[Rfam]
RNA: Group II catalytic intron D1-D4-2
Organism: Rhodococcus sp. SMB37
RNA sequence: GAAGGUUGUGUGGCCCUUCUGAGUCGCCCUGCGGGGGGAGGCUCCAAACCACCUCAUGCUGCAUUGGUUGAAGACUGUUGUGGUGAGCGAUGAGGAAAAGGCACCGUGAGAGGUGUCAGGU
Numbered sequence: 001g002a003a004g005g006u007u008g009u010g011u012g013g014c015c016c017u018u019c020u021g022a023g024u025c026g027c028c029c030u031g032c033g034g035g036g037g038g039a040g041g042c043u044c045c046a047a048a049c050c051a052c053c054u055c056a057u058g059c060u061g062c063a064u065u066g067g068u069u070g071a072a073g074a075c076u077g078u079u080g081u082g083g084u085g086a087g088c089g090a091u092g093a094g095g096a097a098a099a100g101g102c103a104c105c106g107u108g109a110g111a112g113g114u115g116u117c118a119g120g121u
Stems, first nucleotide, its partner, number of pairs: 001019005021044005027038004050120001052095006058084002061081003065077004100117006